[Rfam]
Shown here is an 85-nucleotide RNA from Natronobacillus azotifigens, a member of the family "c-di-GMP-I riboswitch aptamer". GEMM was predicted in a large-scale screen for bacterial structured RNA regulatory elements. It scores 81 bits against the family's covariance model.
Nucleotides: 085
Stems, first nucleotide, its partner, number of pairs: 012037002017032006040079004045074002047070003054064003
Number, partner (000 for none) and nucleotide at each position: 001000u002000u003000u004000u005000g006000a007000a008000a009000a010000a011000g012037g013036c014000a015000a016000a017032c018031u019030u020029a021028u022027c023000g024000a025000a026000a027022g028021g029020u030019a031018a032017g033000g034000a035000c036013g037012c038000a039000a040079a041078g042077c043076u044000a045074g046073g047070a048069c049068c050000u051000a052000a053000a054064g055063c056062u057000c058000a059000a060000a061000u062056a063055g064054c065000u066000a067000a068049g069048g070047u071000a072000g073046c074045c075000c076043a077042g078041u079040u080000a081000c082000c083000g084000a085000a